[Rfam]
RNA sequence: GGCUUCUGUUGGGUCAGACAGUUUGGUGCGCUAGUUGUGUGCUUAGCAGCAACGCACACCAGGCUGACUGCCUUAGCAGUGUGGCC
Numbered sequence: 001g002g003c004u005u006c007u008g009u010u011g012g013g014u015c016a017g018a019c020a021g022u023u024u025g026g027u028g029c030g031c032u033a034g035u036u037g038u039g040u041g042c043u044u045a046g047c048a049g050c051a052a053c054g055c056a057c058a059c060c061a062g063g064c065u066g067a068c069u070g071c072c073u074u075a076g077c078a079g080u081g082u083g084g085c086c
Base pairs, nucleotide, nucleotide: 003081005079009076010075011074012073013072015070016069019066020065021064022063023062024061025060026059027058028057030055031054034053035052036051037050040048
Shown here is an 86-nucleotide RNA from Lymphocryptovirus humangamma4, a member of the family "mir-rL1-14 microRNA precursor family". It is one of the family's seed sequences. Rfam 15.1 lists 7 matches to the family in 3 species.